[Rfam]
RNA sequence: GGGCAGGAUGUGUGAAGUAGGCCCACCCGCAAGCGGGAUGUUCCUGCUUCACUGACCUUAUUCGCGCUACGCACUCAACGGACAUCCUGCUCUGCGAGGCU
Numbered sequence: 001g002g003g004c005a006g007g008a009u010g011u012g013u014g015a016a017g018u019a020g021g022c023c024c025a026c027c028c029g030c031a032a033g034c035g036g037g038a039u040g041u042u043c044c045u046g047c048u049u050c051a052c053u054g055a056c057c058u059u060a061u062u063c064g065c066g067c068u069a070c071g072c073a074c075u076c077a078a079c080g081g082a083c084a085u086c087c088u089g090c091u092c093u094g095c096g097a098g099g100c101u
Base pairs, nucleotide, nucleotide: 001092002091003090004089005088006087007086008085009084012052013051014050015049016048017047019045020044021043024040025039026037027036028035029034054083056081057080064074066072067071

Record summary
traJ-II RNA: a 101-nucleotide sequence from Methylotuvimicrobium alcaliphilum. A search with the family's covariance model found it, with a score of 90 bits. By type it is a cis-regulatory element. NCBI's taxonomy places the organism under Bacteria, Pseudomonadota, Methylococcales, Methylococcaceae, Methylotuvimicrobium alcaliphilum. The base pairs follow the family's consensus structure, which is taken from published work.